A member of the RNA family "mir-8517 microRNA precursor family" from Plutella xylostella, 108 nucleotides long. The sequence is in the family's curated seed alignment. The family's consensus secondary structure was predicted with RNAalifold. Taxonomically the source falls in Plutella (Eukaryota, Arthropoda, Endopterygota, Neolepidoptera). Its family is annotated with miRNA-mediated post-transcriptional gene silencing and RISC complex in the Gene Ontology.
[Rfam]
RNA sequence: UUAGUGGAGACUUAAGCUAUUGAACUGUUCUGUCACUCUUUGACAGAGAACAAUUUGUUCUUUGACAGAGAGGGACAAAACAGUUGAAUAGCUAAAGCGUCCAUUAAC
Numbered sequence: 001u002u003a004g005u006g007g008a009g010a011c012u013u014a015a016g017c018u019a020u021u022g023a024a025c026u027g028u029u030c031u032g033u034c035a036c037u038c039u040u041u042g043a044c045a046g047a048g049a050a051c052a053a054u055u056u057g058u059u060c061u062u063u064g065a066c067a068g069a070g071a072g073g074g075a076c077a078a079a080a081c082a083g084u085u086g087a088a089u090a091g092c093u094a095a096a097g098c099g100u101c102c103a104u105u106a107a108c
Stems, first nucleotide, its partner, number of pairs: 001107006011097003015093007023085006029069007049059004